mir-172 microRNA precursor family: a 116-nucleotide RNA sequence from Nicotiana tabacum. From the family's description: mir-172 has been experimentally verified in Arabidopsis thaliana. This family is thought to target mRNAs coding for APETALA2-like transcription factors. The mature sequence is excised from the 3' arm of the hairpin. The base pairs follow the family's consensus structure, which was predicted with PFOLD. A search with the family's covariance model found it, with a score of 80 bits. For this family Rfam cites "CARPEL FACTORY, a Dicer homolog, and HEN1, a novel protein, act in microRNA metabolism in Arabidopsis thaliana" (Park et al., Curr Biol, 2002).
RNA sequence: UCAUUUGCUAAUGCAGCAUCAUCAAGAUUCUCAUAUCAAAUUAAUAGGGCAGAUUUCAUUUCAAUUUCUGCUCCAUAUUUCUAUGUGAAUCUUGAUGGUGCUGCACCAGCAAGCAA
Numbered sequence: 001u002c003a004u005u006u007g008c009u010a011a012u013g014c015a016g017c018a019u020c021a022u023c024a025a026g027a028u029u030c031u032c033a034u035a036u037c038a039a040a041u042u043a044a045u046a047g048g049g050c051a052g053a054u055u056u057c058a059u060u061u062c063a064a065u066u067u068c069u070g071c072u073c074c075a076u077a078u079u080u081c082u083a084u085g086u087g088a089a090u091c092u093u094g095a096u097g098g099u100g101c102u103g104c105a106c107c108a109g110c111a112a113g114c115a116a
Base pairs, nucleotide, nucleotide: 012105013104014103015102016101017100018099019098020097021096022095023094024093025092026091027090028089029088030087032085033084
Dot-bracket structure: ...........(((((((((((((((((((.((..................................................)).)))))))))))))))))))...........